[Rfam]
RNA sequence: UCUAGAACUCGAGAUAUAGGCUGAACAUUGAACAGUGUCUGGGCUGGAGGACAGAUUCGGACUUCUCCGUUGUUGAUAUUUGUUGGACUUGAAAAUGGCCUUUUUAGAUCUUAGCUUCCACAUGAAAGUUGUAGGCCUAUGUCUUACCUAAUCUGUG
Numbered sequence: 001u002c003u004a005g006a007a008c009u010c011g012a013g014a015u016a017u018a019g020g021c022u023g024a025a026c027a028u029u030g031a032a033c034a035g036u037g038u039c040u041g042g043g044c045u046g047g048a049g050g051a052c053a054g055a056u057u058c059g060g061a062c063u064u065c066u067c068c069g070u071u072g073u074u075g076a077u078a079u080u081u082g083u084u085g086g087a088c089u090u091g092a093a094a095a096u097g098g099c100c101u102u103u104u105u106a107g108a109u110c111u112u113a114g115c116u117u118c119c120a121c122a123u124g125a126a127a128g129u130u131g132u133a134g135g136c137c138u139a140u141g142u143c144u145u146a147c148c149u150a151a152u153c154u155g156u157g
Stems, first nucleotide, its partner, number of pairs: 003155004009146001011145010021134003025130001027129003035123003041119003048112004054105002059100002062098002072088003
RNA: MIR2912 microRNA precursor family
Organism: Populus alba